[Rfam]
RNA sequence: CACCCAUCGCGGCACGCGCCGGGGGGCGCAGACUGGAAUUGGAACAGGGGCCAGUCAUGCGCGCGACGGGGAAGCCAGGGGUCGAUGGUCGGGGGACCAUCGGCCCCAUUUUU
Numbered sequence: 001c002a003c004c005c006a007u008c009g010c011g012g013c014a015c016g017c018g019c020c021g022g023g024g025g026g027c028g029c030a031g032a033c034u035g036g037a038a039u040u041g042g043a044a045c046a047g048g049g050g051c052c053a054g055u056c057a058u059g060c061g062c063g064c065g066a067c068g069g070g071g072a073a074g075c076c077a078g079g080g081g082u083c084g085a086u087g088g089u090c091g092g093g094g095g096a097c098c099a100u101c102g103g104c105c106c107c108a109u110u111u112u113u
Stems, first nucleotide, its partner, number of pairs: 003070003007066005012060002016029003031056006039048002078107013